RNA sequence: CGGGUGCAACUCGACUUAGGGAAUUCGGCAAUCUAGCUCCGUACCUUCGGUAUAUGGAGUGCCUAUCGUCUUGUUACGAUAGGUUGCAAUUACAUGGGGAGCUCGACUGUUUACUAAAAACAUAGCCGACUGCUAGUCCGAAAGGAUUUGUAUAGUCGGCGACUCUUGCCCAGUGCCAGUACCUGAAACCUCCGUACAAGGAGCAGAAGGGCUGGUAAACGGCGGCGGUAACUAUGACCGUCUUAAGGUAGCGUAGUCCCUUGCCAAUUAAUUGUUGGCCCGCAUCAAUAGAGGAACGAGGCUCCUGCUGUCCCAAGUCGUGGCCCGGUGAACCCGCUGUACCGGCGCAUAAGCCGGUGA
Numbered sequence: 001c002g003g004g005u006g007c008a009a010c011u012c013g014a015c016u017u018a019g020g021g022a023a024u025u026c027g028g029c030a031a032u033c034u035a036g037c038u039c040c041g042u043a044c045c046u047u048c049g050g051u052a053u054a055u056g057g058a059g060u061g062c063c064u065a066u067c068g069u070c071u072u073g074u075u076a077c078g079a080u081a082g083g084u085u086g087c088a089a090u091u092a093c094a095u096g097g098g099g100a101g102c103u104c105g106a107c108u109g110u111u112u113a114c115u116a117a118a119a120a121c122a123u124a125g126c127c128g129a130c131u132g133c134u135a136g137u138c139c140g141a142a143a144g145g146a147u148u149u150g151u152a153u154a155g156u157c158g159g160c161g162a163c164u165c166u167u168g169c170c171c172a173g174u175g176c177c178a179g180u181a182c183c184u185g186a187a188a189c190c191u192c193c194g195u196a197c198a199a200g201g202a203g204c205a206g207a208a209g210g211g212c213u214g215g216u217a218a219a220c221g222g223c224g225g226c227g228g229u230a231a232c233u234a235u236g237a238c239c240g241u242c243u244u245a246a247g248g249u250a251g252c253g254u255a256g257u258c259c260c261u262u263g264c265c266a267a268u269u270a271a272u273u274g275u276u277g278g279c280c281c282g283c284a285u286c287a288a289u290a291g292a293g294g295a296a297c298g299a300g301g302c303u304c305c306u307g308c309u310g311u312c313c314c315a316a317g318u319c320g321u322g323g324c325c326c327g328g329u330g331a332a333c334c335c336g337c338u339g340u341a342c343c344g345g346c347g348c349a350u351a352a353g354c355c356g357g358u359g360a
Stems, first nucleotide, its partner, number of pairs: 001327004010322001012320006019313003036060005045050001061084009085089001097306007104298002108122003125160008133150001136147004163293004168223003173220002175216005182211003190203004224242006243247001263279006341358005
Rfam assigns this 360-nucleotide part of an RNA from Candidatus Nanohalobium constans to the family "Archaeal large subunit ribosomal RNA". NCBI's taxonomy places the organism under Archaea, Nanobdellati, Candidatus Nanohalarchaeota, Candidatus Nanohalobiaceae, Candidatus Nanohalobium. Rfam 15.1 lists 2,955 matches to the family in 1,139 species.